[Rfam]
RNA: Acido-Lenti-1 RNA
RNA sequence: CCCGGCAAUGAAUUGUCGGGCUAUUUUCUGCCGUCCCUCCGGGACU
Dot-bracket structure: ((((((((....))))))))............(((((...))))).